A member of the RNA family "Small nucleolar RNA SNORD14" from Coptis chinensis, 125 nucleotides long. The family's consensus secondary structure was predicted with PFOLD. On this family, see Samarsky et al., Nucleic Acids Res 1996: "An essential domain in Saccharomyces cerevisiae U14 snoRNA is absent in vertebrates, but conserved in other yeasts". Gene Ontology terms of the family: RNA processing and nucleolus. Rfam describes the family as follows. U14 small nucleolar RNA (U14 snoRNA) is required for early cleavages of eukaryotic precursor rRNAs. In yeasts, this molecule possess a stem-loop region (known as the Y-domain) which is essential for function. A similar structure, but with a different consensus sequence, is found in plants, but is absent in vertebrates. It is annotated as a C/D-box small nucleolar RNA. The organism belongs to Coptis, within Eukaryota.

[Rfam]
RNA sequence: AGUCAAUGAUGAUAAAUCUAAGGCUUGUUUCUCAGAAACAUUCGCAGUUGCCGACUAAGAGCUUUCGCCUUUCACCGGGCUUGAGAGUUAAUGCUGCUUUAUUCCUUCCUUGGAUGUCUGAGACU
Numbered sequence: 001a002g003u004c005a006a007u008g009a010u011g012a013u014a015a016a017u018c019u020a021a022g023g024c025u026u027g028u029u030u031c032u033c034a035g036a037a038a039c040a041u042u043c044g045c046a047g048u049u050g051c052c053g054a055c056u057a058a059g060a061g062c063u064u065u066c067g068c069c070u071u072u073c074a075c076c077g078g079g080c081u082u083g084a085g086a087g088u089u090a091a092u093g094c095u096g097c098u099u100u101a102u103u104c105c106u107u108c109c110u111u112g113g114a115u116g117u118c119u120g121a122g123a124c125u
Stems, first nucleotide, its partner, number of pairs: 001125004061088006